[Rfam]
RNA sequence: AAAGUUGCUGCAGUUAAAAAGCUCGUAGUUGGAUCUUGGGAGCAGGCGGGUGGUCUGCUGCGAGGCGCCCCUUGCCUCUCGGUGUCCCCUUGAUGCUCUUAGCUGAGUGUCUCACGGGGCCCAAAGCAUUUACUUUGAAAAAAUUAGAGUGUUCAAAGCAGGCCCGAGCCGCCUGGAUACCGCAGCUAGGAAUAAUGGAAUAGGACCGCGGUUCUAUUUUGUUGGUUUUCGGAACUGAGGCCAUGAUUAAGAGGGAUGGCCGGGGGCAUUUGUAUUGCGCCGCUAGAGGUGGAAUUCUUGGACCCGCACAAGACGGACCAGAGAAAAAGCAUUUGCCAAGAAUGUUUUCAUUAAUCAAGAACAAAAGUCAGAGGUUUGAAGAUGAUCAGAUACCGUUGUAGUUCCGACCAUAAAUGAUGCCAACUGGCAAUGCGGCAGCAUUAUUCCCAUGACCCAUCGGGCAGCUUCUGGGAAACCAAAAUCUUUGGGUUCUGGGGGGAGUAUGGUUGCAAAGCUGAAACUUGAAGGAAU
Numbered sequence: 001a002a003a004g005u006u007g008c009u010g011c012a013g014u015u016a017a018a019a020a021g022c023u024c025g026u027a028g029u030u031g032g033a034u035c036u037u038g039g040g041a042g043c044a045g046g047c048g049g050g051u052g053g054u055c056u057g058c059u060g061c062g063a064g065g066c067g068c069c070c071c072u073u074g075c076c077u078c079u080c081g082g083u084g085u086c087c088c089c090u091u092g093a094u095g096c097u098c099u100u101a102g103c104u105g106a107g108u109g110u111c112u113c114a115c116g117g118g119g120c121c122c123a124a125a126g127c128a129u130u131u132a133c134u135u136u137g138a139a140a141a142a143a144u145u146a147g148a149g150u151g152u153u154c155a156a157a158g159c160a161g162g163c164c165c166g167a168g169c170c171g172c173c174u175g176g177a178u179a180c181c182g183c184a185g186c187u188a189g190g191a192a193u194a195a196u197g198g199a200a201u202a203g204g205a206c207c208g209c210g211g212u213u214c215u216a217u218u219u220u221g222u223u224g225g226u227u228u229u230c231g232g233a234a235c236u237g238a239g240g241c242c243a244u245g246a247u248u249a250a251g252a253g254g255g256a257u258g259g260c261c262g263g264g265g266g267c268a269u270u271u272g273u274a275u276u277g278c279g280c281c282g283c284u285a286g287a288g289g290u291g292g293a294a295u296u297c298u299u300g301g302a303c304c305c306g307c308a309c310a311a312g313a314c315g316g317a318c319c320a321g322a323g324a325a326a327a328a329g330c331a332u333u334u335g336c337c338a339a340g341a342a343u344g345u346u347u348u349c350a351u352u353a354a355u356c357a358a359g360a361a362c363a364a365a366a367g368u369c370a371g372a373g374g375u376u377u378g379a380a381g382a383u384g385a386u387c388a389g390a391u392a393c394c395g396u397u398g399u400a401g402u403u404c405c406g407a408c409c410a411u412a413a414a415u416g417a418u419g420c421c422a423a424c425u426g427g428c429a430a431u432g433c434g435g436c437a438g439c440a441u442u443a444u445u446c447c448c449a450u451g452a453c454c455c456a457u458c459g460g461g462c463a464g465c466u467u468c469u470g471g472g473a474a475a476c477c478a479a480a481a482u483c484u485u486u487g488g489g490u491u492c493u494g495g496g497g498g499g500a501g502u503a504u505g506g507u508u509g510c511a512a513a514g515c516u517g518a519a520a521c522u523u524g525a526a527g528g529a530a531u
Stems, first nucleotide, its partner, number of pairs: 011494003019491001021362001023360002028355003253349004257344002261340001265337004271315002275311003279307002282304001286297003323330001367408003371404002377401001381397004419490003423482001426466003431461001433459003438454001441452002470477002496523003505516004
The record is a 531-nucleotide part of an RNA from Tupaia belangeri, which matches "Eukaryotic small subunit ribosomal RNA" in Rfam.
Gene Ontology terms of the family: structural constituent of ribosome and ribosome.
The match comes from Rfam's covariance-model search (1326 bits).
The family has 90 seed sequences and 75,755 matches in Rfam 15.1.
Pairs were carried over by alignment from the consensus structure, which is taken from published work.